RNA sequence: CAGUGGGUGCAAAUCCCACCCGGCAACUAUCGCUCCAGUCGCUAGCAAUCGGAGCAGCCGAGAAGGAUGGGUAGCUGAAGCCUUCGGCGCAAUGGUCACCUUGGGUGACUUGAUGAGUGUGCAGGCCGUUGCGAAG
Numbered sequence: 001c002a003g004u005g006g007g008u009g010c011a012a013a014u015c016c017c018a019c020c021c022g023g024c025a026a027c028u029a030u031c032g033c034u035c036c037a038g039u040c041g042c043u044a045g046c047a048a049u050c051g052g053a054g055c056a057g058c059c060g061a062g063a064a065g066g067a068u069g070g071g072u073a074g075c076u077g078a079a080g081c082c083u084u085c086g087g088c089g090c091a092a093u094g095g096u097c098a099c100c101u102u103g104g105g106u107g108a109c110u111u112g113a114u115g116a117g118u119g120u121g122c123a124g125g126c127c128g129u130u131g132c133g134a135a136g
Base pairs, nucleotide, nucleotide: 021041022040023039024038050086051085052084053083054082055077056076057075058074094110095109096108097107098106099105113129114128115127
Shown here is a 136-nucleotide sequence, a member of the family "Group II catalytic intron D1-D4-4". Rfam's curators put it in the seed alignment. The pairing is the family consensus, mapped onto this sequence. A reference for the family is Bonen and Vogel (2001), "The ins and outs of group II introns", Trends Genet.